The record is a 172-nucleotide RNA from Lacticaseibacillus brantae, which matches "Lysine riboswitch aptamer" in Rfam. NCBI's taxonomy places the organism under Bacteria, Bacillota, Bacilli, Lactobacillales, Lacticaseibacillus brantae.

RNA sequence: CAGAUGAUUAGAGGUUGCGCGUAACAUGAGUCACUUAACUGACAAGCCACACUUGAGUGAGGUUAAGUAAAAGGGAAACGCGCCGAAAUGCCCGGUUGUGGAACCAGGGUGUUGGGCUAAGUUUGAAGAAGACUUAGACUGUCGCAGAUAACUGCGGGGCGCUAACACGACG
Numbered sequence: 001c002a003g004a005u006g007a008u009u010a011g012a013g014g015u016u017g018c019g020c021g022u023a024a025c026a027u028g029a030g031u032c033a034c035u036u037a038a039c040u041g042a043c044a045a046g047c048c049a050c051a052c053u054u055g056a057g058u059g060a061g062g063u064u065a066a067g068u069a070a071a072a073g074g075g076a077a078a079c080g081c082g083c084c085g086a087a088a089u090g091c092c093c094g095g096u097u098g099u100g101g102a103a104c105c106a107g108g109g110u111g112u113u114g115g116g117c118u119a120a121g122u123u124u125g126a127a128g129a130a131g132a133c134u135u136a137g138a139c140u141g142u143c144g145c146a147g148a149u150a151a152c153u154g155c156g157g158g159g160c161g162c163u164a165a166c167a168c169g170a171c172g
Base pairs, nucleotide, nucleotide: 008165009164010163011162017083018082019081020080021079022078025075033068034067035066036065037064038063039062040061087113088112089111090110091109092108093107094105095104096103097102114140115139117137118136119135120134121133122132123131124130142157143156144155145154146153147152
Dot-bracket structure: .......((((.....((((((..(.......((((((((....................))))))))......)..))))))...(((((((((((....)))).)))))))((.((((((((.....)))))))).)).((((((....))))))....)))).......